[Rfam]
RNA sequence: GGAAGCGCCAGGGGCACUGGUGGCCCCCCCGGACUUCAAAUCCGGUGUGCCGUCUGAGAAAGGCGGCAGGUGGGUUCGAUUCCCAUGCGCUUCC
Numbered sequence: 001g002g003a004a005g006c007g008c009c010a011g012g013g014g015c016a017c018u019g020g021u022g023g024c025c026c027c028c029c030c031g032g033a034c035u036u037c038a039a040a041u042c043c044g045g046u047g048u049g050c051c052g053u054c055u056g057a058g059a060a061a062g063g064c065g066g067c068a069g070g071u072g073g074g075u076u077c078g079a080u081u082c083c084c085a086u087g088c089g090c091u092u093c094c
Stems, first nucleotide, its partner, number of pairs: 001094008011027005017022001029045005048068005071085004
Selenocysteine transfer RNA: a 94-nucleotide sequence from Thermosulfuriphilus ammonigenes.
Clan: tRNA clan.
The match comes from Rfam's covariance-model search (76 bits).
Rfam links the family to the GO term triplet codon-amino acid adaptor activity.